[Rfam]
Description:
A member of the RNA family "MIR397 microRNA precursor family" from Zingiber officinale, 115 nucleotides long. The literature on the family includes a 2009 paper in BMC Genomics by Mica et al., "High throughput approaches reveal splicing of primary microRNA transcripts and tissue specific expression of mature microRNAs in Vitis vinifera". Rfam links the family to the GO terms miRNA-mediated post-transcriptional gene silencing and RISC complex. The organism belongs to Zingiber, within Eukaryota.

RNA sequence: AUCAAAGGCACCAUUGAGUGCAGCGUUGAUGAGGUCCAAUUCCCAUGCCAUCAUCUUCUUUAAGGCGUUGGCAAGGCAGAGGGAUUCACCAACGCUGCCUUCAAUAAUGCCUUGG
Dot-bracket structure: .....(((((..((((((.(((((((((.(((.....................................................))).))))))))).))))))..)))))...